RNA sequence: AUGCCGGGCGUGUCAAGCGGACGCGAUGGCGCGAAGGACAUAUGGGUUUUUCCGCUUUCCCCACAUGGCCAACGAAACGGCAAUCGAGCUUUUUACCCGUCCGUCCU
Numbered sequence: 001a002u003g004c005c006g007g008g009c010g011u012g013u014c015a016a017g018c019g020g021a022c023g024c025g026a027u028g029g030c031g032c033g034a035a036g037g038a039c040a041u042a043u044g045g046g047u048u049u050u051u052c053c054g055c056u057u058u059c060c061c062c063a064c065a066u067g068g069c070c071a072a073c074g075a076a077a078c079g080g081c082a083a084u085c086g087a088g089c090u091u092u093u094u095a096c097c098c099g100u101c102c103g104u105c106c107u
Base pairs, nucleotide, nucleotide: 006106007105008104009103011023012022013021014020025101026100027099028098029097033092034091035090036089039067040066041065043063044062045061068081069080070079
RNA: Rhizobiales sRNA Atu_At1